[Rfam]
RNA sequence: GGUAGUGAGUUAUCCCCAAAAUCCUUUGAAUUUAAGAAAAUAAAUACUAAUGAGAAUCUUUACAGGUAGCAAAUACUCAAAUGAGAACUUUGAGGACUGAAGUGGGGAAAGGUUCCAUGUGAACAGCAGUUGGACAUGGGUUAGUCGAUCCUAAGAGAUAGGGAAACUCCGUUUCAAAGUGCGCACUUGUGCGCCGUCCCUCGAAAGGGAAGCCGGUUAAUAUUCCGGCACCUGGAUAUGGAUUUUUCGCGGCAACGCAACUGAACGCGGAGACGUCGGCGGGGGCCCUGGGAAGAGUUCUCUUUUCUUCUUAACGGCCUAUCACCCUGAAAUCGGUUUGUCCGGAGCUAGGGUUUAACGGCCGGUAGAGCCCCGCACCUUUGUGGGGUCCGGUGCGCUCCCGACGACCCUUGAAAAUCCGCGGGAAGGAAUAAUUUUCAUGCCAGGUCGUACUCAUAACCGCAGCAGGUCUCCAAGGUGAACAGCCUCUAGUUGA
Number, nucleotide and partner (000 for none) at each position: 001g000002g000003u000004a000005g000006u000007g000008a000009g000010u000011u000012a000013u000014c000015c094016c000017c092018a091019a090020a089021a000022u000023c000024c000025u000026u000027u000028g000029a000030a000031u000032u000033u000034a000035a000036g000037a000038a000039a000040a000041u000042a000043a000044a000045u000046a000047c000048u000049a000050a000051u000052g000053a000054g000055a000056a000057u000058c000059u000060u000061u000062a000063c000064a000065g000066g000067u000068a000069g000070c000071a000072a000073a000074u000075a000076c000077u000078c000079a000080a000081a000082u000083g000084a000085g000086a000087a000088c000089u020090u019091u018092g017093a000094g015095g494096a493097c492098u491099g000100a000101a000102g000103u000104g474105g473106g472107g471108a000109a000110a454111g453112g000113u000114u000115c139116c138117a137118u136119g135120u134121g000122a000123a000124c132125a131126g000127c000128a000129g000130u000131u125132g124133g000134a120135c119136a118137u117138g116139g115140g000141u000142u000143a000144g000145u000146c450147g449148a448149u000150c208151c207152u000153a000154a000155g202156a201157g173158a172159u171160a000161g170162g169163g168164a000165a000166a000167c000168u163169c162170c161171g159172u158173u157174u000175c000176a000177a000178a000179g000180u000181g194182c193183g192184c000185a000186c000187u000188u000189g000190u000191g000192c183193g182194c181195c000196g000197u000198c000199c000200c000201u156202c155203g000204a000205a000206a000207g151208g150209g000210a000211a000212g229213c228214c227215g226216g225217u000218u000219a000220a000221u000222a000223u000224u000225c216226c215227g214228g213229c212230a000231c000232c446233u445234g444235g443236a000237u442238a441239u440240g439241g438242a436243u000244u000245u000246u000247u000248c000249g258250c257251g256252g000253c000254a000255a000256c251257g250258c249259a000260a000261c000262u000263g000264a000265a000266c423267g422268c421269g420270g419271a418272g000273a000274c000275g408276u407277c406278g405279g000280c403281g402282g401283g400284g399285g398286c397287c000288c393289u392290g391291g311292g310293a309294a308295g307296a306297g000298u000299u000300c000301u000302c000303u000304u000305u000306u296307c295308u294309u293310c292311u291312u000313a000314a000315c364316g363317g362318c361319c360320u000321a000322u000323c000324a354325c353326c352327c351328u350329g349330a000331a000332a000333u345334c344335g343336g342337u000338u000339u000340g000341u000342c336343c335344g334345g333346a000347g000348c000349u329350a328351g327352g326353g325354u324355u000356u000357a000358a000359c000360g319361g318362c317363c316364g315365g000366u000367a000368g000369a000370g000371c388372c387373c386374c385375g384376c383377a382378c000379c000380u000381u000382u377383g376384u375385g374386g373387g372388g371389u000390c000391c290392g289393g288394u000395g000396c000397g286398c285399u284400c283401c282402c281403g280404a000405c278406g277407a276408c275409c000410c000411u000412u000413g000414a000415a000416a000417a000418u271419c270420c269421g268422c267423g266424g000425g000426a000427a000428g000429g000430a000431a000432u000433a000434a000435u000436u242437u000438u241439c240440a239441u238442g237443c235444c234445a233446g232447g000448u148449c147450g146451u000452a000453c111454u110455c000456a000457u000458a000459a000460c469461c468462g000463c000464a000465g000466c000467a000468g461469g460470u000471c107472u106473c105474c104475a000476a488477g487478g486479u485480g000481a000482a000483c000484a000485g479486c478487c477488u476489c000490u000491a098492g097493u096494u095495g000496a000
Eukaryotic large subunit ribosomal RNA: a 496-nucleotide part of an RNA from Cladonia borealis.
The match comes from Rfam's covariance-model search (2810 bits).
Clan: LSU clan.
Gene Ontology terms of the family: ribosome and structural constituent of ribosome.